[Rfam]
RNA sequence: AAAGAGGAUGUCGAAAAUCUUUAAAAGAGUAGACG
Dot-bracket structure: .((((....[[[.....))))..........]]].
Rfam assigns this 35-nucleotide sequence to the family "DUF805b RNA". The sequence is in the family's curated seed alignment. It is annotated as a cis-regulatory element. Its Rfam clan is "DUF805 clan".